[Rfam]
RNA sequence: UACUACCAAACCCUAUCUCCACCUCCACGUGGUGACCGCUGGGAGCUCUUUCUUAACGAAGAGAUACAGACGGAGAAGG
Numbered sequence: 001u002a003c004u005a006c007c008a009a010a011c012c013c014u015a016u017c018u019c020c021a022c023c024u025c026c027a028c029g030u031g032g033u034g035a036c037c038g039c040u041g042g043g044a045g046c047u048c049u050u051u052c053u054u055a056a057c058g059a060a061g062a063g064a065u066a067c068a069g070a071c072g073g074a075g076a077a078g079g
Base pairs, nucleotide, nucleotide: 012079013078014077016075018073019072021033022032023031044065046063047062048061049060050059052058
The record is a 79-nucleotide RNA sequence from Hermetia illucens, which matches "drz-agam-1 ribozyme" in Rfam. The base pairs follow the family's consensus structure, which is taken from published work. Rfam links the family to the GO term catalytic activity.